[Rfam]
This 294-nucleotide RNA sequence from Sciurus vulgaris belongs to the Rfam family "Mason-Pfizer monkey virus packaging signal".
RNA sequence: UGGCACCCAACGGUGUGGCUUUGGAUACCGGGGAAUUCACGAGGGAAGAGGUGUGUAAGUGUUCGGCCGAAGGAAAAAAAAAAAAGUGAAAGUGAAAGUCAGUUCAACAAAGUUCACCACGGGAGCCUGCCAUGCCGUUCUUAAAGGUACAGUAGUGCCUAACUAUGGGACAAGAAUUAAGUAAGCAUAAAGUUUUUGUUAAGCAAUUAAAAGAAAUUUUAAAGACACAGGGAGUAAAGGUUAAGAGUAAUGAUCUUUUUAAGUUUUUUGACCUUAUUAAGGACACCUGUCUGU
Numbered sequence: 001u002g003g004c005a006c007c008c009a010a011c012g013g014u015g016u017g018g019c020u021u022u023g024g025a026u027a028c029c030g031g032g033g034a035a036u037u038c039a040c041g042a043g044g045g046a047a048g049a050g051g052u053g054u055g056u057a058a059g060u061g062u063u064c065g066g067c068c069g070a071a072g073g074a075a076a077a078a079a080a081a082a083a084a085a086g087u088g089a090a091a092g093u094g095a096a097a098g099u100c101a102g103u104u105c106a107a108c109a110a111a112g113u114u115c116a117c118c119a120c121g122g123g124a125g126c127c128u129g130c131c132a133u134g135c136c137g138u139u140c141u142u143a144a145a146g147g148u149a150c151a152g153u154a155g156u157g158c159c160u161a162a163c164u165a166u167g168g169g170a171c172a173a174g175a176a177u178u179a180a181g182u183a184a185g186c187a188u189a190a191a192g193u194u195u196u197u198g199u200u201a202a203g204c205a206a207u208u209a210a211a212a213g214a215a216a217u218u219u220u221a222a223a224g225a226c227a228c229a230g231g232g233a234g235u236a237a238a239g240g241u242u243a244a245g246a247g248u249a250a251u252g253a254u255c256u257u258u259u260u261a262a263g264u265u266u267u268u269u270g271a272c273c274u275u276a277u278u279a280a281g282g283a284c285a286c287c288u289g290u291c292u293g294u
Stems, first nucleotide, its partner, number of pairs: 006033003013028003038050001040048001099147002103144002115137001118134002121131002153173001155171002158169004178221003181217002228270008238256006279294001281292004
On this family, see Harrison et al., J Virol 1995: "Secondary structure model of the Mason-Pfizer monkey virus 5' leader sequence: identification of a structural motif common to a variety of retroviruses".
Gene Ontology term of the family: viral genome packaging.
It is annotated as a cis-regulatory element.
The organism belongs to Sciurus, within Eukaryota.
Rfam 15.1 lists 2,921 matches to the family in 53 species.